[Rfam]
RNA sequence: CCUGCGCCAGGACGGAAAGACCCCAUGGAGCUUUACUCCAGCUUGAUACUGGGAUUCGAUGCUGUAUGUACAGGAUAGGUGGGAGACUAAGAAGUGAUUACGCCAGUAAUCAUGGAGUCACUGUUGGGAUACCACUCUUGCAGCAUUGGGUUUCUAACCUGCGCCCGUGACCCGGGCGGGGGACAAUGUCUGGCGGGGAGUUUGACUGGGGCGGUCGCCUCCGAAAGGGUAUCGGAGGCGCUCAAAGGUUCCCUCAGGAUGGUUGGAAACCAUCCGAAGAGUGCAAAGGCAUAAGGGAGCUUGACUGUGACACCGACGGGUGGAGCAGGUACGAAAGUAGGACUUAGUGAUCCGGUGGUAUUAAGUGGGAAUGCCAUCGCUCAACGGAUAAAAGCUACCCUGGGGAUAACAGGCUUAUCACUCCCAAGAGUUCACAUCGACGGAGUGGUUUGGCACCUCGAUGUCGGCUCAUCGCAUCCUGGGGCUGUAGCAGGUCCCAAGGGUUGGGCUGUUCGCCCAUUAAAGCGGUACGCGAGCUGGGUUCAGAACGUCGUGAGACAGUUCGGUCCCUAUCCGGCGCAGGCGGA
Number, nucleotide and partner (000 for none) at each position: 001c583002c582003u581004g580005c579006g578007c577008c576009a000010g575011g574012a573013c000014g570015g569016a000017a000018a000019g000020a000021c000022c404023c403024c402025a401026u000027g400028g399029a396030g395031c394032u393033u392034u000035a201036c200037u199038c198039c000040a000041g000042c193043u192044u000045g190046a189047u188048a187049c000050u000051g154052g153053g152054a151055u150056u149057c148058g147059a146060u145061g144062c143063u142064g141065u140066a139067u000068g137069u000070a000071c000072a000073g000074g000075a000076u000077a000078g136079g135080u134081g133082g132083g000084a000085g119086a118087c117088u000089a000090a000091g000092a000093a000094g113095u112096g111097a110098u109099u108100a107101c106102g000103c000104c000105a000106g101107u100108a099109a098110u097111c096112a095113u094114g000115g000116a000117g087118u086119c085120a000121c000122u000123g000124u000125u000126g000127g000128g000129a000130u000131a000132c082133c081134a080135c079136u078137c068138u000139u066140g065141c064142a063143g062144c061145a060146u059147u058148g057149g056150g055151u054152u053153u052154c051155u000156a000157a000158c181159c180160u179161g000162c178163g177164c176165c175166c174167g173168u000169g000170a000171c000172c000173c167174g166175g165176g164177c163178g162179g160180g159181g158182g000183a000184c000185a000186a000187u048188g047189u046190c045191u000192g043193g042194c000195g000196g000197g000198g038199a037200g036201u035202u000203u000204g216205a215206c214207u213208g000209g000210g000211g000212c000213g207214g206215u205216c204217g239218c238219c237220u236221c235222c234223g000224a000225a000226a000227g000228g000229g000230u000231a000232u000233c000234g222235g221236a220237g219238g218239c217240g385241c000242u342243c341244a000245a000246a000247g000248g300249u299250u298251c297252c296253c295254u280255c279256a000257g275258g274259a273260u272261g271262g270263u000264u000265g000266g000267a000268a000269a000270c262271c261272a260273u259274c258275c257276g000277a000278a000279g255280a254281g290282u289283g000284c000285a000286a000287a000288g000289g282290c281291a000292u000293a000294a000295g253296g252297g251298a250299g249300c248301u000302u000303g000304a000305c328306u327307g326308u325309g000310a000311c322312a321313c320314c000315g000316a000317c000318g000319g000320g313321u312322g311323g000324a000325g308326c307327a306328g305329g000330u339331a338332c337333g000334a000335a000336a000337g332338u331339a330340g000341g243342a242343c000344u000345u000346a000347g000348u000349g000350a000351u000352c000353c379354g378355g377356u376357g375358g374359u373360a000361u000362u371363a000364a000365g000366u000367g000368g000369g000370a000371a362372u000373g359374c358375c357376a356377u355378c354379g353380c000381u000382c000383a000384a000385c240386g000387g000388a000389u000390a000391a000392a033393a032394g031395c030396u029397a000398c000399c028400c027401u025402g024403g023404g022405g000406a000407u000408a000409a000410c000411a000412g000413g454414c453415u452416u000417a451418u448419c447420a446421c445422u444423c443424c442425c000426a000427a000428g438429a437430g000431u000432u000433c000434a000435c000436a000437u429438c428439g000440a000441c000442g424443g423444a422445g421446u420447g419448g418449u000450u000451u417452g415453g414454c413455a000456c000457c000458u000459c000460g000461a000462u000463g000464u000465c540466g538467g537468c536469u535470c532471a529472u528473c527474g526475c525476a000477u000478c503479c502480u000481g498482g497483g496484g495485c494486u493487g000488u000489a000490g000491c000492a000493g486494g485495u484496c483497c482498c481499a000500a000501g000502g479503g478504u000505u519506g518507g517508g516509c515510u000511g000512u000513u000514c000515g509516c508517c507518c506519a505520u000521u000522a000523a000524a000525g475526c474527g473528g472529u471530a000531c000532g470533c000534g000535a469536g468537c467538u466539g000540g465541g000542u000543u000544c000545a000546g564547a563548a562549c561550g559551u558552c557553g000554u000555g000556a000557g552558a551559c550560a000561g549562u548563u547564c546565g000566g000567u000568c000569c015570c014571u000572a000573u012574c011575c010576g008577g007578c006579g005580c004581a003582g002583g001584c000585g000586g000587a000

Overview
This 587-nucleotide part of an RNA from Lachnospiraceae bacterium 3_1_57FAA_CT1 belongs to the Rfam family "Bacterial large subunit ribosomal RNA". The organism belongs to Lachnospiraceae, within Bacteria.